[Rfam]
RNA sequence: AAGAAAAAAAGGCAAACUCGUCGAAAGACGGGGACGCAAAGCCAUGGGUCUAAGGCUUGUUUUAUGCUAUGACUGCCAGGUUGCUGUG
Numbered sequence: 001a002a003g004a005a006a007a008a009a010a011g012g013c014a015a016a017c018u019c020g021u022c023g024a025a026a027g028a029c030g031g032g033g034a035c036g037c038a039a040a041g042c043c044a045u046g047g048g049u050c051u052a053a054g055g056c057u058u059g060u061u062u063u064a065u066g067c068u069a070u071g072a073c074u075g076c077c078a079g080g081u082u083g084c085u086g087u088g
Stems, first nucleotide, its partner, number of pairs: 012037002017032006040082004045078003048073003055067002058064001
RNA: c-di-GMP-I riboswitch aptamer